Purine riboswitch aptamer: a 102-nucleotide RNA sequence from Hathewaya histolytica.
RNA sequence: UUAUAAUUACAUAUAAAAACUCGUAUAUCGUCGGUAAUAUGGUCCGAAAGUUUCUACCUACUAACCAUAAAUUAGUAGACUACGGGGGAUGAAAUUUAGUAA
Numbered sequence: 001u002u003a004u005a006a007u008u009a010c011a012u013a014u015a016a017a018a019a020c021u022c023g024u025a026u027a028u029c030g031u032c033g034g035u036a037a038u039a040u041g042g043u044c045c046g047a048a049a050g051u052u053u054c055u056a057c058c059u060a061c062u063a064a065c066c067a068u069a070a071a072u073u074a075g076u077a078g079a080c081u082a083c084g085g086g087g088g089a090u091g092a093a094a095u096u097u098a099g100u101a102a
Stems, first nucleotide, its partner, number of pairs: 020086006031047004058078007
Dot-bracket structure: ...................((((((.....((((.........))))..........(((((((.......)))))))..))))))................
The base pairs follow the family's consensus structure, which is taken from published work.